[Rfam]
Rfam assigns this 129-nucleotide RNA sequence from Salix purpurea to the family "MIR390 microRNA precursor family". The match comes from Rfam's covariance-model search (117 bits). The organism belongs to Salix, within Eukaryota. Its family is annotated with RISC complex and miRNA-mediated post-transcriptional gene silencing in the Gene Ontology.

RNA sequence: UGGGAGAAUCUGUUAAGCUCAGGAGGGAUAGCGCCAUGAGCACGACAAAAUCUAUGUUUGAGUUAAUCUCAACAAAGUCAAUCCAGUCAUCGGUGGCGCUAUCCAUCCUGAGUUUCAUGGGUUCUUCUU
Numbered sequence: 001u002g003g004g005a006g007a008a009u010c011u012g013u014u015a016a017g018c019u020c021a022g023g024a025g026g027g028a029u030a031g032c033g034c035c036a037u038g039a040g041c042a043c044g045a046c047a048a049a050a051u052c053u054a055u056g057u058u059u060g061a062g063u064u065a066a067u068c069u070c071a072a073c074a075a076a077g078u079c080a081a082u083c084c085a086g087u088c089a090u091c092g093g094u095g096g097c098g099c100u101a102u103c104c105a106u107c108c109u110g111a112g113u114u115u116c117a118u119g120g121g122u123u124c125u126u127c128u129u
Stems, first nucleotide, its partner, number of pairs: 010120001016114009026104012